[Rfam]
RNA sequence: UAUUUAAAAGGUCCGCAGUCGGGGGAGAUGGCCGUGGGGAAAGCAGGCUGUUCAAGGGGAGCGCGAUGCACGGAAGGAGCGAAGUCAAGAGGGGCGGAGCGAGGGCGGGAAGAUUUGGCAGCCAGAGGUGAAAUUCAAAGACUUGCCGAGGAUGGACAGAGGCGAAGGCGCCUGCCAGGGACGCUUUCAUUGAUCAGGGACGAAGGCCGGAGAAGCGAAGAUGAUUAGAGACCGUUGUAGUUCCGGCGGUAAACGAUGCCAACACGGGGGCGUGCGCGCGGGGGCGAGCAGGUGGCCGGAGAGAAAUCGAGUGCGAGGGCUAUAGGGGAAGUAUUGCCGCAAGGUUGGAACUUAAACGAAAU
Numbered sequence: 001u002a003u004u005u006a007a008a009a010g011g012u013c014c015g016c017a018g019u020c021g022g023g024g025g026a027g028a029u030g031g032c033c034g035u036g037g038g039g040a041a042a043g044c045a046g047g048c049u050g051u052u053c054a055a056g057g058g059g060a061g062c063g064c065g066a067u068g069c070a071c072g073g074a075a076g077g078a079g080c081g082a083a084g085u086c087a088a089g090a091g092g093g094g095c096g097g098a099g100c101g102a103g104g105g106c107g108g109g110a111a112g113a114u115u116u117g118g119c120a121g122c123c124a125g126a127g128g129u130g131a132a133a134u135u136c137a138a139a140g141a142c143u144u145g146c147c148g149a150g151g152a153u154g155g156a157c158a159g160a161g162g163c164g165a166a167g168g169c170g171c172c173u174g175c176c177a178g179g180g181a182c183g184c185u186u187u188c189a190u191u192g193a194u195c196a197g198g199g200a201c202g203a204a205g206g207c208c209g210g211a212g213a214a215g216c217g218a219a220g221a222u223g224a225u226u227a228g229a230g231a232c233c234g235u236u237g238u239a240g241u242u243c244c245g246g247c248g249g250u251a252a253a254c255g256a257u258g259c260c261a262a263c264a265c266g267g268g269g270g271c272g273u274g275c276g277c278g279c280g281g282g283g284g285c286g287a288g289c290a291g292g293u294g295g296c297c298g299g300a301g302a303g304a305a306a307u308c309g310a311g312u313g314c315g316a317g318g319g320c321u322a323u324a325g326g327g328g329a330a331g332u333a334u335u336g337c338c339g340c341a342a343g344g345u346u347g348g349a350a351c352u353u354a355a356a357c358g359a360a361a362u
Stems, first nucleotide, its partner, number of pairs: 001324003011201004018194003091188003094184003100179001104176006111153001114150008125136003162169002206247006215241002220236004258320003262312002265298003270293002273290002301308002326353003336345003